Record summary:
The record is a 95-nucleotide RNA from Streptococcus pneumoniae, which matches "Streptococcus sRNA SpF11" in Rfam.
[Rfam]
Nucleotides: 095
Base pairs, nucleotide, nucleotide: 006046007045013039014038017033018032019031020030021029061090062089063088064087065086066085067084068083069082070081071080
Number, partner (000 for none) and nucleotide at each position: 001000c002000a003000u004000u005000u006046g007045u008000u009000a010000u011000c012000a013039u014038u015000g016000g017033u018032c019031a020030c021029a022000u023000u024000g025000a026000a027000a028000a029021u030020g031019u032018g033017a034000a035000a036000u037000a038014a039013g040000c041000a042000c043000c044000u045007a046006c047000a048000a049000c050000a051000u052000a053000g054000a055000c056000u057000u058000u059000a060000c061090a062089a063088c064087a065086c066085u067084u068083c069082a070081u071080g072000g073000u074000u075000c076000g077000a078000u079000c080071c081070g082069u083068g084067a085066g086065g087064u088063g089062u090061u091000u092000u093000u094000c095000u

Background
NCBI's taxonomy places the organism under Bacteria, Bacillota, Lactobacillales, Streptococcus, Streptococcus pneumoniae. The sequence is in the family's curated seed alignment. On this family, see Mann et al., PLoS Pathog 2012: "Control of virulence by small RNAs in Streptococcus pneumoniae".